[Rfam]
RNA sequence: UGCCUUUGUGUUGCCCAUUCAUUGCCUUCUAAAAUGAAUGUGGUGUCAAAAAAGGCAAACAAGAAUUCUUGCUCAAGCUGUGUAAGGGGCUGGCUAUCUGCCUUUCUCCUCCCUGUUUUUGCAAGGACAGAA
Numbered sequence: 001u002g003c004c005u006u007u008g009u010g011u012u013g014c015c016c017a018u019u020c021a022u023u024g025c026c027u028u029c030u031a032a033a034a035u036g037a038a039u040g041u042g043g044u045g046u047c048a049a050a051a052a053a054g055g056c057a058a059a060c061a062a063g064a065a066u067u068c069u070u071g072c073u074c075a076a077g078c079u080g081u082g083u084a085a086g087g088g089g090c091u092g093g094c095u096a097u098c099u100g101c102c103u104u105u106c107u108c109c110u111c112c113c114u115g116u117u118u119u120u121g122c123a124a125g126g127a128c129a130g131a132a
Stems, first nucleotide, its partner, number of pairs: 002056006009048002012045004016040008068125004074121004082116003086112002088109002092103002

A member of the RNA family "Small nucleolar RNA SNORA13", 132 nucleotides long.
ACA13 is a member of the H/ACA class of snoRNA that guide the sites of modification of uridines to pseudouridines.
The family's consensus secondary structure was predicted with CMfinder.
It is annotated as an H/ACA-box small nucleolar RNA.